[Rfam]
RNA sequence: AUGACAGCAAGGGGAGAGACUGCAGGUAGUCCUUGUACUCGAUUGUGGCGCCGAAGGAGCAAGCGGUGUAAAACCGUGAAUCUCUCAGGCAAAAAGACUCUUGCUCGACG
Number, nucleotide and partner (000 for none) at each position: 001a000002u000003g000004a000005c000006a105007g104008c103009a102010a101011g100012g099013g098014g000015a000016g000017a000018g000019a000020c048021u047022g046023c045024a044025g043026g000027u000028a000029g000030u000031c000032c000033u000034u000035g000036u000037a000038c000039u000040c000041g000042a000043u025044u024045g023046u022047g021048g020049c000050g090051c089052c088053g086054a085055a000056g000057g084058a083059g082060c000061a000062a000063g077064c076065g075066g074067u000068g000069u000070a000071a000072a000073a000074c066075c065076g064077u063078g000079a000080a000081u000082c059083u058084c057085u054086c053087a000088g052089g051090c050091a000092a000093a000094a000095a000096g000097a000098c013099u012100c011101u010102u009103g008104c007105u006106c000107g000108a000109c000110g000
RNA: Glycine riboswitch aptamer
Organism: Bacillus oleivorans